[Rfam]
RNA sequence: UUGUGAGUUCCAUGCUUCCUUGCAUUCAAUAGUAUAUAAACAAUCAUAUGGAAUGUAAAGAAGUAUGGAGCGAAAUC
Numbered sequence: 001u002u003g004u005g006a007g008u009u010c011c012a013u014g015c016u017u018c019c020u021u022g023c024a025u026u027c028a029a030u031a032g033u034a035u036a037u038a039a040a041c042a043a044u045c046a047u048a049u050g051g052a053a054u055g056u057a058a059a060g061a062a063g064u065a066u067g068g069a070g071c072g073a074a075a076u077c
Base pairs, nucleotide, nucleotide: 007071008070009069010068011067012066013065014064015063016062017061018060020058021057022056023055024054025053027051029049030048031047
The family of this 77-nucleotide RNA sequence from Drosophila albomicans is "mir-1 microRNA precursor family". Lineage of the source: Eukaryota > Allotriocarida > Aparaglossata > Diptera > Drosophila. The family has 137 seed sequences and 4,474 matches in Rfam 15.1. From the family's description: This family represents the microRNA (miRNA) mir-1 family. miRNAs are transcribed as ~70nt precursors (modelled here) and subsequently processed by the Dicer enzyme to give a ~22nt product. In this case the mature sequence comes from the 3' arm of the precursor. The extents of the hairpin precursors are not generally known and are estimated based on hairpin prediction. The products are thought to have regulatory roles through complementarity to mRNA. The involvement of Dicer in miRNA processing suggests a relationship with the phenomenon of RNA interference. miRNAs are numbered based on the sequence of the mature RNA. This family also contains the mir-206 from human, which appears to be related to mir-1. A search with the family's covariance model found it, with a score of 63 bits. The family's consensus secondary structure was predicted with RNAalifold. Gene Ontology terms of the family: miRNA-mediated post-transcriptional gene silencing and RISC complex.